This 98-nucleotide RNA from Cavia porcellus belongs to the Rfam family "Vault RNA".
Rfam classes the family as a non-coding RNA gene.
Pairs were carried over by alignment from the consensus structure, which is taken from published work.
A search with the family's covariance model found it, with a score of 67 bits.
Lineage of the source: Eukaryota > Bilateria > Boreoeutheria > Hystricomorpha > Cavia.
RNA sequence: GGGCUGGCUUUAGCCCAGCGGUUCCUUGGAGUCUGGCUUCCCAACCGGGGCCGAUUGGUCCGGUGGUUCGAGACCCGCGGGCGCUCUCCAGUCCUAUU
Numbered sequence: 001g002g003g004c005u006g007g008c009u010u011u012a013g014c015c016c017a018g019c020g021g022u023u024c025c026u027u028g029g030a031g032u033c034u035g036g037c038u039u040c041c042c043a044a045c046c047g048g049g050g051c052c053g054a055u056u057g058g059u060c061c062g063g064u065g066g067u068u069c070g071a072g073a074c075c076c077g078c079g080g081g082c083g084c085u086c087u088c089c090a091g092u093c094c095u096a097u098u
Stems, first nucleotide, its partner, number of pairs: 002093006013082004018078004026072002029069002